c-di-AMP riboswitch aptamer (ydaO/yuaA leader): a 152-nucleotide RNA from Arthrobacter crusticola. The source organism's lineage runs through Bacteria, Actinomycetota, Actinomycetes, Micrococcales and Arthrobacter. Its family is annotated with regulation of gene expression and cyclic-di-AMP binding in the Gene Ontology. Rfam describes the family as follows. This family represents a conserved RNA structure found upstream of the ydaO and yuaA genes in Bacillus subtilis and related genes in other bacteria. Pairs were carried over by alignment from the consensus structure.
RNA sequence: GAGGUCCGUCCGCACAAUUCGCAUGGCAGAGGCGGGGGAACCAAUUUUUGGGUUUCGUUUAGAAAUCCUUGGGGUUAAGUCGCUGAUUUCAGCGGCCGGGUGACUCCCAUCCGAAUCCGACAGCUCACCUCGCAGGCAUUGGGAGAGGCAAU
Numbered sequence: 001g002a003g004g005u006c007c008g009u010c011c012g013c014a015c016a017a018u019u020c021g022c023a024u025g026g027c028a029g030a031g032g033c034g035g036g037g038g039a040a041c042c043a044a045u046u047u048u049u050g051g052g053u054u055u056c057g058u059u060u061a062g063a064a065a066u067c068c069u070u071g072g073g074g075u076u077a078a079g080u081c082g083c084u085g086a087u088u089u090c091a092g093c094g095g096c097c098g099g100g101u102g103a104c105u106c107c108c109a110u111c112c113g114a115a116u117c118c119g120a121c122a123g124c125u126c127a128c129c130u131c132g133c134a135g136g137c138a139u140u141g142g143g144a145g146a147g148g149c150a151a152u
Stems, first nucleotide, its partner, number of pairs: 005030002032133006042071002072118003080095004098112004